[Rfam]
RNA sequence: AACCACAAUAUCGAUGAAUGGAUUCACCCGUGUGAUGACGUGGUUGUUCCAUCUAGGAUGAUGACAUGGCAUAUCCUAUUAAUUUCGUGCAAUGGCUAGUAAUAGGAUGCCACGUCCUCGUCCUAUGUAAAACAGCCACGUCAUCUCCCGGGUGAAUCCAUUCAUUGAUAGUGUGGUU
Number, nucleotide and partner (000 for none) at each position: 001a178002a177003c176004c175005a174006c173007a172008a000009u170010a169011u168012c167013g166014a165015u164016g000017a162018a161019u160020g000021g158022a157023u156024u155025c154026a153027c152028c151029c000030g149031u000032g147033u000034g000035a144036u143037g142038a141039c140040g000041u138042g137043g136044u135045u134046g133047u132048u131049c000050c000051a128052u127053c000054u125055a124056g000057g122058a121059u000060g000061a000062u000063g116064a115065c114066a000067u000068g000069g110070c109071a108072u000073a000074u107075c106076c105077u104078a103079u102080u101081a100082a000083u000084u000085u000086c000087g000088u099089g000090c000091a000092a000093u000094g000095g000096c000097u000098a000099g088100u081101a080102a079103u078104a077105g076106g075107a074108u071109g070110c069111c000112a000113c000114g065115u064116c063117c000118u000119c000120g000121u058122c057123c000124u055125a054126u000127g052128u051129a000130a000131a048132a047133c046134a045135g044136c043137c042138a041139c000140g039141u038142c037143a036144u035145c000146u000147c032148c000149c030150g000151g028152g027153u026154g025155a024156a023157u022158c021159c000160a019161u018162u017163c000164a015165u014166u013167g012168a011169u010170a009171g000172u007173g006174u005175g004176g003177u002178u001
RNA: MIR807 microRNA precursor family